[Rfam]
RNA sequence: CGAGUGAUUCGUGGCUAAGGAACUAGGCAAAAUGGCCCCGUAACUUCGGGAGAAGGGGCGCUGGCGCAAGUCAGCCGCAGUGAAAAGGCCCAGGCGACUGUUUAUCAAAAACACAGGGCUAUGCUAAAUCGCAAGAUGAUGUAUAUGGCCUGACACCUGCCCGGUGCCGGAAGGUUAAGAGGGGAUGUUAUACUUUCGGGUAGAAGCAUUGAAUCGAAGCCCCGGUAAACGGCGGCCGUAACUAUAACGGUCCUAAGGUAGCGAAAUUCCUUGUCGGGUAAGUUCCGACCUGCACGAAUGGUGCAACGAUCUGGGCACUGUCUCGGCCACGAGCUCG
Numbered sequence: 001c002g003a004g005u006g007a008u009u010c011g012u013g014g015c016u017a018a019g020g021a022a023c024u025a026g027g028c029a030a031a032a033u034g035g036c037c038c039c040g041u042a043a044c045u046u047c048g049g050g051a052g053a054a055g056g057g058g059c060g061c062u063g064g065c066g067c068a069a070g071u072c073a074g075c076c077g078c079a080g081u082g083a084a085a086a087g088g089c090c091c092a093g094g095c096g097a098c099u100g101u102u103u104a105u106c107a108a109a110a111a112c113a114c115a116g117g118g119c120u121a122u123g124c125u126a127a128a129u130c131g132c133a134a135g136a137u138g139a140u141g142u143a144u145a146u147g148g149c150c151u152g153a154c155a156c157c158u159g160c161c162c163g164g165u166g167c168c169g170g171a172a173g174g175u176u177a178a179g180a181g182g183g184g185a186u187g188u189u190a191u192a193c194u195u196u197c198g199g200g201u202a203g204a205a206g207c208a209u210u211g212a213a214u215c216g217a218a219g220c221c222c223c224g225g226u227a228a229a230c231g232g233c234g235g236c237c238g239u240a241a242c243u244a245u246a247a248c249g250g251u252c253c254u255a256a257g258g259u260a261g262c263g264a265a266a267u268u269c270c271u272u273g274u275c276g277g278g279u280a281a282g283u284u285c286c287g288a289c290c291u292g293c294a295c296g297a298a299u300g301g302u303g304c305a306a307c308g309a310u311c312u313g314g315g316c317a318c319u320g321u322c323u324c325g326g327c328c329a330c331g332a333g334c335u336c337g
Stems, first nucleotide, its partner, number of pairs: 001337004009332008018323003035059005044049001060075006076080001088316007095308002099113003116151008124141001128137003154303004159233003164230002166226005173221003179215002184210005191202004234252006253257001263290001273289006